[Rfam]
The family of this 132-nucleotide sequence from Oryza sativa is "MIR5512 microRNA precursor family".
RNA sequence: AUGUAUUUUUUUAGCAUUACCAUAUCCUAUUUGGCAAUGAAUUUCACUUUAGACAAUCCAAUCUUAAGAACAUACUCUAGUAUAUGAAAUUCAUUGCCAAAUAGGAUAUGGUAAUGCUAAAAAAAAAUACAA
Numbered sequence: 001a002u003g004u005a006u007u008u009u010u011u012u013a014g015c016a017u018u019a020c021c022a023u024a025u026c027c028u029a030u031u032u033g034g035c036a037a038u039g040a041a042u043u044u045c046a047c048u049u050u051a052g053a054c055a056a057u058c059c060a061a062u063c064u065u066a067a068g069a070a071c072a073u074a075c076u077c078u079a080g081u082a083u084a085u086g087a088a089a090u091u092c093a094u095u096g097c098c099a100a101a102u103a104g105g106a107u108a109u110g111g112u113a114a115u116g117c118u119a120a121a122a123a124a125a126a127a128u129a130c131a132a
Base pairs, nucleotide, nucleotide: 002131003130004129005128006125007124008123009122010121011120012119013118014117015116016115017114018113019112020111021110022109023108024107025106026105027104028103029102030101031100032099033098034097035096036095037094038093039092040091041090042089043088044087045086046085062069063068
Dot-bracket structure: .(((((((((((((((((((((((((((((((((((((((((((((...............((....))...............)))))))))))))))))))))))))))))))))))))))))..)))).
NCBI's taxonomy places the organism under Eukaryota, Tracheophyta, Mesangiospermae, Poales, Oryza.